[Rfam]
RNA sequence: UCACCACAAGGAGAAGUGAAUGGGCCUAUUUCUACUAACCAUAGAAUAAAGGCCCAGGAAAGUCCCCGGGCCCAUUACUGCAGAGAUGCAGCUCCGGAAACGGGUGAACUUCGAAGGCUUUGGGGAGUUGGGCUGAGACGUGUGUGGAGCCAUAUGAGCUCCCCAGCCCGAAGCUAACUGGCCGAUUUUACAGUCAUUCACUUGGUCCUUUAGGACUAACUGAACGGGGCUUACAUCCUUGUGGUC
Dot-bracket structure: ..(((((((((..((((((..(((((........................)))))....[[[.[[[[...........((((....))))..((((....))))...(.((((..((............((((......((.(...).)).......)))).....))))).).)......................)))))).((((....)))).........]]]]]]]....))))))))).